Ruegeria cis2 sRNA: a 150-nucleotide RNA sequence from Maritimibacter sp. HL-12.
The match comes from Rfam's covariance-model search (95 bits).
The source organism's lineage runs through Bacteria, Pseudomonadati, Pseudomonadota, Rhodobacterales and Maritimibacter.
By type it is a small RNA.
[Rfam]
RNA sequence: GUUGGAGUAAUGCGGGUUGUAGUUGAUGAACGUGAAGCCGCGGGCCUGGUCGAUGACGUGAAACAGCGGGUUCCAGCUGAACAGGGCGAGCAUGUUGAAGGGAAGGGUAUUCGCGAGGAACAUCUUGCCGGAGGCGAUCAUGUUCGCGCG
Numbered sequence: 001g002u003u004g005g006a007g008u009a010a011u012g013c014g015g016g017u018u019g020u021a022g023u024u025g026a027u028g029a030a031c032g033u034g035a036a037g038c039c040g041c042g043g044g045c046c047u048g049g050u051c052g053a054u055g056a057c058g059u060g061a062a063a064c065a066g067c068g069g070g071u072u073c074c075a076g077c078u079g080a081a082c083a084g085g086g087c088g089a090g091c092a093u094g095u096u097g098a099a100g101g102g103a104a105g106g107g108u109a110u111u112c113g114c115g116a117g118g119a120a121c122a123u124c125u126u127g128c129c130g131g132a133g134g135c136g137a138u139c140a141u142g143u144u145c146g147c148g149c150g
Base pairs, nucleotide, nucleotide: 002035003034004033007031008030013025014024015023037057039055040054041052042051043050067150068149070082071081072080073079086147087146088145089144090143091142092141093140094139102129104126105125106124107123108122110119111118112117